Rfam assigns this 86-nucleotide RNA from Anaerosolibacter carboniphilus to the family "Clostridiales-2 RNA". By type it is a small RNA.
RNA sequence: UAUAUAUGGGGUGUGCAGAGGGGAUUUCCCCCUUGCCGCAUUCAGGAAGGUCCUCAGGAAGCUGUUUUGCAGCCGUCGAAGGAAAC
Numbered sequence: 001u002a003u004a005u006a007u008g009g010g011g012u013g014u015g016c017a018g019a020g021g022g023g024a025u026u027u028c029c030c031c032c033u034u035g036c037c038g039c040a041u042u043c044a045g046g047a048a049g050g051u052c053c054u055c056a057g058g059a060a061g062c063u064g065u066u067u068u069g070c071a072g073c074c075g076u077c078g079a080a081g082g083a084a085a086c
Base pairs, nucleotide, nucleotide: 015036016035018034019033020032021031022030023029057074058073062072063071064070